RNA sequence: CCCUCCUAUAAAGACGUGUCUUGGGUUCCUUGUCUUUGGACGCGUAAGAAUCGGAGGCAGAAACAUUUUUGGAUUUGGUGACAUCUGGGCCAGCUUGCUCCCUGAAGGCUCCAGCUCAACCAUCUCACAUAA
Numbered sequence: 001c002c003c004u005c006c007u008a009u010a011a012a013g014a015c016g017u018g019u020c021u022u023g024g025g026u027u028c029c030u031u032g033u034c035u036u037u038g039g040a041c042g043c044g045u046a047a048g049a050a051u052c053g054g055a056g057g058c059a060g061a062a063a064c065a066u067u068u069u070u071g072g073a074u075u076u077g078g079u080g081a082c083a084u085c086u087g088g089g090c091c092a093g094c095u096u097g098c099u100c101c102c103u104g105a106a107g108g109c110u111c112c113a114g115c116u117c118a119a120c121c122a123u124c125u126c127a128c129a130u131a132a
Stems, first nucleotide, its partner, number of pairs: 002057005015044007024030002071125003075122001092110005098104001

The family of this 132-nucleotide sequence from Octodon degus is "Small nucleolar RNA SNORA38". The family's consensus secondary structure was predicted with RNAfold. The organism belongs to Octodon, within Eukaryota. From the family's description: ACA38 is a member of the H/ACA class of snoRNA that guide the sites of modification of uridines to pseudouridines. Rfam links the family to the GO terms RNA processing, Cajal body and nucleolus. The family has 25 seed sequences and 628 matches in Rfam 15.1.